Annotation
The record is a 167-nucleotide sequence from Yersinia rohdei, which matches "Yersinia YenS sRNA" in Rfam. It is annotated as a small RNA. It is one of the family's seed sequences.

RNA sequence: GCUUUAUAGAAUUGAUUUAACUUAUAAUAGAACUAGUAUAUUAGCGCACUGCCGCUAAAAAAGUUAGUCUGAUCAUAAUAUAUUUUCGCCAACACCAGGGGACUUUUAGUCCACCCGUCUCAGCUUUACCCCGCCAUCUGGGUGCUUUUACAUUCAGGUGGCGAUUA
Numbered sequence: 001g002c003u004u005u006a007u008a009g010a011a012u013u014g015a016u017u018u019a020a021c022u023u024a025u026a027a028u029a030g031a032a033c034u035a036g037u038a039u040a041u042u043a044g045c046g047c048a049c050u051g052c053c054g055c056u057a058a059a060a061a062a063g064u065u066a067g068u069c070u071g072a073u074c075a076u077a078a079u080a081u082a083u084u085u086u087c088g089c090c091a092a093c094a095c096c097a098g099g100g101g102a103c104u105u106u107u108a109g110u111c112c113a114c115c116c117g118u119c120u121c122a123g124c125u126u127u128a129c130c131c132c133g134c135c136a137u138c139u140g141g142g143u144g145c146u147u148u149u150a151c152a153u154u155c156a157g158g159u160g161g162c163g164a165u166u167a
Stems, first nucleotide, its partner, number of pairs: 001124003006118002011037003014033001016032003020028001039060001041058006063114002067110002071106002077086002089100002133162012